Shown here is an 80-nucleotide sequence, a member of the family "skipping-rope RNA".
The family's RNA type in Rfam is small RNA.
The family's consensus secondary structure is taken from published work.
RNA sequence: AAUUAUUGAAGUAGAGAUAGUGCUGCUACGCGCCUAGUGGGCCAAAAGAAAUGUGGGAAGGGGCACACCCACCAAUAAUU
Numbered sequence: 001a002a003u004u005a006u007u008g009a010a011g012u013a014g015a016g017a018u019a020g021u022g023c024u025g026c027u028a029c030g031c032g033c034c035u036a037g038u039g040g041g042c043c044a045a046a047a048g049a050a051a052u053g054u055g056g057g058a059a060g061g062g063g064c065a066c067a068c069c070c071a072c073c074a075a076u077a078a079u080u
Stems, first nucleotide, its partner, number of pairs: 001080008011029004020066005031048001032042004053072005